[Rfam]
RNA sequence: GUUAACCGCUGGGGGAGCCUGAUUCGUCUCAGGCUGAGAGGGCAGCACGUGCCGACCCCAGAACCUGAUCCGGUUCGUACCGGCGUAGGGAAGCGGACGCGCAGGGGG
Numbered sequence: 001g002u003u004a005a006c007c008g009c010u011g012g013g014g015g016a017g018c019c020u021g022a023u024u025c026g027u028c029u030c031a032g033g034c035u036g037a038g039a040g041g042g043c044a045g046c047a048c049g050u051g052c053c054g055a056c057c058c059c060a061g062a063a064c065c066u067g068a069u070c071c072g073g074u075u076c077g078u079a080c081c082g083g084c085g086u087a088g089g090g091a092a093g094c095g096g097a098c099g100c101g102c103a104g105g106g107g108g
Stems, first nucleotide, its partner, number of pairs: 006096005011059004017034005041053004064089004070083004
A member of the RNA family "TPP riboswitch aptamer (THI element)" from Armatimonas rosea, 108 nucleotides long.
A search with the family's covariance model found it, with a score of 71 bits.
Gene Ontology term of the family: thiamine pyrophosphate binding.
The base pairs follow the family's consensus structure, which is taken from published work.